[Rfam]
RNA sequence: CUCUUAUCCUGAGCCGGUGGAGGGACAGGCCCUGUGAAACCCAGCAACCUGCCGUAUAAAAAGCGGAAAAGGUGCUAAACCUGAGCAAGGAUCAACCUUGGACGAUAAGAG
Numbered sequence: 001c002u003c004u005u006a007u008c009c010u011g012a013g014c015c016g017g018u019g020g021a022g023g024g025a026c027a028g029g030c031c032c033u034g035u036g037a038a039a040c041c042c043a044g045c046a047a048c049c050u051g052c053c054g055u056a057u058a059a060a061a062a063g064c065g066g067a068a069a070a071g072g073u074g075c076u077a078a079a080c081c082u083g084a085g086c087a088a089g090g091a092u093c094a095a096c097c098u099u100g101g102a103c104g105a106u107a108a109g110a111g
Stems, first nucleotide, its partner, number of pairs: 001111008013042001016041003022032003026085001029081001043076004048072002050068001052066004086100005